The family of this 111-nucleotide RNA sequence from Durio zibethinus is "MIR162_1 microRNA precursor family". The organism belongs to Durio, within Eukaryota. The match comes from Rfam's covariance-model search (78 bits). Pairs were carried over by alignment from the consensus structure, which was predicted with RNAalifold.
RNA sequence: GUUAAAGAGACUGGAGGCAGCAAUUCAUUGAUUUUUUCGUAGGAAUUUUGUUUUGAGAAUAACCCAAACACAUGAAUCGAUCGAUAAACCUUUGCAUCCGGCACCUUAAAU
Number, nucleotide and partner (000 for none) at each position: 001g000002u000003u000004a000005a000006a000007g000008a000009g000010a000011c000012u000013g099014g098015a097016g000017g000018c094019a093020g092021c000022a000023a000024u088025u087026c000027a085028u084029u083030g082031a081032u080033u079034u000035u000036u076037u075038c074039g000040u000041a000042g000043g000044a000045a000046u000047u000048u000049u000050g000051u000052u000053u000054u000055g000056a000057g000058a000059a000060u000061a000062a000063c000064c000065c000066a000067a000068a000069c000070a000071c000072a000073u000074g038075a037076a036077u000078c000079g033080a032081u031082c030083g029084a028085u027086a000087a025088a024089c000090c000091u000092u020093u019094g018095c000096a000097u015098c014099c013100g000101g000102c000103a000104c000105c000106u000107u000108a000109a000110a000111u000